[Rfam]
A member of the RNA family "mir-36 microRNA precursor family" from Caenorhabditis remanei, 99 nucleotides long. The match comes from Rfam's covariance-model search (80 bits). Lineage of the source: Eukaryota > Nematoda > Rhabditina > Rhabditomorpha > Caenorhabditis. Its family is annotated with RISC complex and miRNA-mediated post-transcriptional gene silencing in the Gene Ontology. The family's consensus secondary structure was predicted with WAR. Rfam 15.1 lists 199 matches to the family in 31 species. For this family Rfam cites "Patterns of flanking sequence conservation and a characteristic upstream motif for microRNA gene identification" (Ohler et al., RNA, 2004).

RNA sequence: AUUAUCUGGUCGGAUCGGACCUCCACUGAUUUUCGCUUCGGUGAUAUUUCAAGAACGAUUAUCACCGGGUGAAAAUCAGGGCAGGUCCGAUUCCCCAUU
Numbered sequence: 001a002u003u004a005u006c007u008g009g010u011c012g013g014a015u016c017g018g019a020c021c022u023c024c025a026c027u028g029a030u031u032u033u034c035g036c037u038u039c040g041g042u043g044a045u046a047u048u049u050c051a052a053g054a055a056c057g058a059u060u061a062u063c064a065c066c067g068g069g070u071g072a073a074a075a076u077c078a079g080g081g082c083a084g085g086u087c088c089g090a091u092u093c094c095c096c097a098u099u
Stems, first nucleotide, its partner, number of pairs: 016089007024081001026079012039067001041065006